[Rfam]
RNA sequence: CAAUAAUACGGGAGAACUCAAGGGUGGAUCGGCAUGUAACCCCUUUAUCCUCAGAAAGGGGGUGAUGCCGAUGACGGUGUUUGAAGCGUUAAUGUUUGCGAUCGCUUUCGCAAGCUUAAUCGUUUCUAUUCUAUCCUUUCACCAAAAGAAAUAGCCCACCCUUGAGUUAGCAGCCCAUCGGUGGACUAUUUCCCCAUAUGGCUGAUCCCCCUUGCAGGGAACCGUGUUAUUGCAGGGCCAAGGGUGUUGCAGCAUCCUUGG
Numbered sequence: 001c002a003a004u005a006a007u008a009c010g011g012g013a014g015a016a017c018u019c020a021a022g023g024g025u026g027g028a029u030c031g032g033c034a035u036g037u038a039a040c041c042c043c044u045u046u047a048u049c050c051u052c053a054g055a056a057a058g059g060g061g062g063u064g065a066u067g068c069c070g071a072u073g074a075c076g077g078u079g080u081u082u083g084a085a086g087c088g089u090u091a092a093u094g095u096u097u098g099c100g101a102u103c104g105c106u107u108u109c110g111c112a113a114g115c116u117u118a119a120u121c122g123u124u125u126c127u128a129u130u131c132u133a134u135c136c137u138u139u140c141a142c143c144a145a146a147a148g149a150a151a152u153a154g155c156c157c158a159c160c161c162u163u164g165a166g167u168u169a170g171c172a173g174c175c176c177a178u179c180g181g182u183g184g185a186c187u188a189u190u191u192c193c194c195c196a197u198a199u200g201g202c203u204g205a206u207c208c209c210c211c212u213u214g215c216a217g218g219g220a221a222c223c224g225u226g227u228u229a230u231u232g233c234a235g236g237g238c239c240a241a242g243g244g245u246g247u248u249g250c251a252g253c254a255u256c257c258u259u260g261g
Stems, first nucleotide, its partner, number of pairs: 001232005007226003011222001014202001017166008026156002029153001037064002040061007073135002076132002079129001087100002110126001112124001177189002208219003238261010
RNA: BsrG
Organism: Anoxybacillus sp. B7M1